[Rfam]
RNA sequence: GCAACCUGCGCCUGGCGCACGAGCAGCUGGCCGUGUUCCGCUCGCUGCUGGGCAUCUCGUGGAUGUGGUUCUUCGGCGCUGUGUUCCUCAGCCAGUUUCCGGCCUUUGCCAAAGAAGUGCUG
Dot-bracket structure: .........(.(.(..(...(((((........)))))...)..).).).(((((.((.(.((.(.((..((.(.(.(..(....).)).)..))..))...).)....).).)).))))).
Numbered sequence: 001g002c003a004a005c006c007u008g009c010g011c012c013u014g015g016c017g018c019a020c021g022a023g024c025a026g027c028u029g030g031c032c033g034u035g036u037u038c039c040g041c042u043c044g045c046u047g048c049u050g051g052g053c054a055u056c057u058c059g060u061g062g063a064u065g066u067g068g069u070u071c072u073u074c075g076g077c078g079c080u081g082u083g084u085u086c087c088u089c090a091g092c093c094a095g096u097u098u099c100c101g102g103c104c105u106u107u108g109c110c111a112a113a114g115a116a117g118u119g120c121u122g
Stems, first nucleotide, its partner, number of pairs: 010049001012047001014045001017042001021038005051121005057115002060112001062110001063105001065103001067099002071095002074091001076089001078088001081086001
Overview
The record is a 122-nucleotide sequence from Comamonas serinivorans, which matches "Burkholderia RNA 11" in Rfam. Rfam classes the family as a small RNA. From the family's description: Co-purified with Hfq, expression confirmed by Northern blot. Predicted target marZ. Overlaps coding sequence.